[Rfam]
RNA sequence: UUAAAGUCAGUGAAAAGAGAGAGUAGGUAUAGGAAAUUAGUUUCAGAGAGCUUGGGGUGGUGUGAUCCAAGUGCUGUAGCCUUUAUUGAAUGGGUCUUUGAGAUGACACUUGGAAUUUAUAGUACAGGUGUACGGGAAGUCCGCCGUUAAAAGGACAGGGUAUCGAUUAAGUUCCGUACCUGGUAAAGAUUGUGUGUAACGUAGGUGGCAUAGCGAAAUAAGGUAUUUCGUCCUAAGGGAUGAAGUAUCUUUUGUUUUUAUAAACACUUUUGUUAUACAAAAAAUGGGUGGCACCACGAGUCACUUCGUCCCAUUA
Numbered sequence: 001u002u003a004a005a006g007u008c009a010g011u012g013a014a015a016a017g018a019g020a021g022a023g024u025a026g027g028u029a030u031a032g033g034a035a036a037u038u039a040g041u042u043u044c045a046g047a048g049a050g051c052u053u054g055g056g057g058u059g060g061u062g063u064g065a066u067c068c069a070a071g072u073g074c075u076g077u078a079g080c081c082u083u084u085a086u087u088g089a090a091u092g093g094g095u096c097u098u099u100g101a102g103a104u105g106a107c108a109c110u111u112g113g114a115a116u117u118u119a120u121a122g123u124a125c126a127g128g129u130g131u132a133c134g135g136g137a138a139g140u141c142c143g144c145c146g147u148u149a150a151a152a153g154g155a156c157a158g159g160g161u162a163u164c165g166a167u168u169a170a171g172u173u174c175c176g177u178a179c180c181u182g183g184u185a186a187a188g189a190u191u192g193u194g195u196g197u198a199a200c201g202u203a204g205g206u207g208g209c210a211u212a213g214c215g216a217a218a219u220a221a222g223g224u225a226u227u228u229c230g231u232c233c234u235a236a237g238g239g240a241u242g243a244a245g246u247a248u249c250u251u252u253u254g255u256u257u258u259u260a261u262a263a264a265c266a267c268u269u270u271u272g273u274u275a276u277a278c279a280a281a282a283a284a285u286g287g288g289u290g291g292c293a294c295c296a297c298g299a300g301u302c303a304c305u306u307c308g309u310c311c312c313a314u315u316a
Stems, first nucleotide, its partner, number of pairs: 007103002015098004026087004031082001039075003050072006106131007133146003285313004296309005
The family of this 316-nucleotide RNA sequence from Clostridium paraputrificum is "T-box leader". The family's consensus secondary structure is taken from published work. The literature on the family includes a 1994 paper in J Bacteriol by Grundy et al., "Interaction between the acceptor end of tRNA and the T box stimulates antitermination in the Bacillus subtilis tyrS gene: a new role for the discriminator base".